[Rfam]
RNA sequence: UUGUGACCUGGAGUUCUCCUCAAAUCACUUCAGUUGCUAACUUCUGCCUCAUUGUUGCAUUGGCACUGUUUUAAAAGUGUGCAUUGCAGCCUUGCAGGGACAAGAGAGGUGUGCAUAGUGAAGUGUUUGGGGGAACUCUGGGUGUCUA
Numbered sequence: 001u002u003g004u005g006a007c008c009u010g011g012a013g014u015u016c017u018c019c020u021c022a023a024a025u026c027a028c029u030u031c032a033g034u035u036g037c038u039a040a041c042u043u044c045u046g047c048c049u050c051a052u053u054g055u056u057g058c059a060u061u062g063g064c065a066c067u068g069u070u071u072u073a074a075a076a077g078u079g080u081g082c083a084u085u086g087c088a089g090c091c092u093u094g095c096a097g098g099g100a101c102a103a104g105a106g107a108g109g110u111g112u113g114c115a116u117a118g119u120g121a122a123g124u125g126u127u128u129g130g131g132g133g134a135a136c137u138c139u140g141g142g143u144g145u146c147u148a
Stems, first nucleotide, its partner, number of pairs: 006143004011138010022128003026125007034117001
RNA: mir-395 microRNA precursor family
Organism: Hordeum vulgare